[Rfam]
RNA: mir-23 microRNA precursor family
Organism: Leptobrachium leishanense
Nucleotides: 078
Stems, first nucleotide, its partner, number of pairs: 001078002004075003011070002013066008022057004027052005
Number, partner (000 for none) and nucleotide at each position: 001078u002077g003000u004075c005074a006073g007000a008000c009000g010000g011070g012069g013066a014065u015064u016063c017062c018061u019060g020059g021000a022057g023056a024055u025054g026000g027052g028051a029050u030049u031048u032000u033000u034000u035000u036000a037000a038000u039000u040000c041000a042000a043000a044000u045000c046000a047000u048031a049030a050029a051028u052027c053000a054025c055024a056023u057022u058000g059020c060019c061018a062017g063016g064015g065014a066013u067000u068000u069012c070011c071000a072000a073006c074005u075004g076000c077002c078001a